[Rfam]
RNA sequence: AAUCAAGAGCGUCAGCUAUAAGCCCUGGCUAGCUGGCCGGCAACCCUCUCAACGGUAGCGGGGUGCUCCAGGUGAAGAUUCGGUCCCACGUGAAGACACGUUGGAACAAGUACCGCGC
Numbered sequence: 001a002a003u004c005a006a007g008a009g010c011g012u013c014a015g016c017u018a019u020a021a022g023c024c025c026u027g028g029c030u031a032g033c034u035g036g037c038c039g040g041c042a043a044c045c046c047u048c049u050c051a052a053c054g055g056u057a058g059c060g061g062g063g064u065g066c067u068c069c070a071g072g073u074g075a076a077g078a079u080u081c082g083g084u085c086c087c088a089c090g091u092g093a094a095g096a097c098a099c100g101u102u103g104g105a106a107c108a109a110g111u112a113c114c115g116c117g118c
Stems, first nucleotide, its partner, number of pairs: 001080004009038001011037006021030002039067003044063003048058002083107002085104002088101005
Shown here is a 118-nucleotide sequence from Glutamicibacter uratoxydans, a member of the family "SAM (S-adenosyl methionine) riboswitch aptamer". Pairs were carried over by alignment from the consensus structure, which is taken from published work. Lineage of the source: Bacteria > Bacillati > Actinomycetes > Micrococcales > Glutamicibacter.